The family of this 127-nucleotide sequence from Otolemur garnettii is "Small nucleolar RNA SNORA72". The source organism's lineage runs through Eukaryota, Bilateria, Vertebrata, Sarcopterygii and Otolemur. The base pairs follow the family's consensus structure, which was predicted with PFOLD. Gene Ontology terms of the family: nucleolus and RNA processing. The literature on the family includes a 1997 paper in Genes Dev by Ganot et al., "The family of box ACA small nucleolar RNAs is defined by an evolutionarily conserved secondary structure and ubiquitous sequence elements essential for RNA accumulation". About the family: U72 is a member of the H/ACA class of snoRNAs. The snoRNA gene is located in intron 4 of the ribosomal L30 protein gene in human, mouse and chicken. Rfam classes the family as an H/ACA-box small nucleolar RNA.
[Rfam]
RNA sequence: CUGCAAAUAUUCUUGCUGUUCUGAUUUUAUAAUAAUCAGUACAGACUAAACAUUCACUAUAUAAAGACCAUGCAUGUGUCCCCCAGACCUAGUUCUUUUCCUACGUUUAUAAAUGCUGGUGAUAAAC
Dot-bracket structure: ..(............((((.((((((.......)))))).))))............).........((((.((...........((((.(((........))).))))......)))))).......
Numbered sequence: 001c002u003g004c005a006a007a008u009a010u011u012c013u014u015g016c017u018g019u020u021c022u023g024a025u026u027u028u029a030u031a032a033u034a035a036u037c038a039g040u041a042c043a044g045a046c047u048a049a050a051c052a053u054u055c056a057c058u059a060u061a062u063a064a065a066g067a068c069c070a071u072g073c074a075u076g077u078g079u080c081c082c083c084c085a086g087a088c089c090u091a092g093u094u095c096u097u098u099u100c101c102u103a104c105g106u107u108u109a110u111a112a113a114u115g116c117u118g119g120u121g122a123u124a125a126a127c
Stems, first nucleotide, its partner, number of pairs: 003057001016044004021039006067120004072116002085108004090103003